RNA sequence: AAAGAUCGAUACCGAGGGGGGGCACGACGCCCCGGAGACACCCCUGUUUCGUCAGACAGUCUGUACCGCGUACAGCCUGAAACUCCCUAAACCUCAACAAACUGCCACUUCGACGUGAAGGUAUCGUUCU
Numbered sequence: 001a002a003a004g005a006u007c008g009a010u011a012c013c014g015a016g017g018g019g020g021g022g023c024a025c026g027a028c029g030c031c032c033c034g035g036a037g038a039c040a041c042c043c044c045u046g047u048u049u050c051g052u053c054a055g056a057c058a059g060u061c062u063g064u065a066c067c068g069c070g071u072a073c074a075g076c077c078u079g080a081a082a083c084u085c086c087c088u089a090a091a092c093c094u095c096a097a098c099a100a101a102c103u104g105c106c107a108c109u110u111c112g113a114c115g116u117g118a119a120g121g122u123a124u125c126g127u128u129c130u
Stems, first nucleotide, its partner, number of pairs: 002130001004128002007126007019033005034086004044055003057079003062074005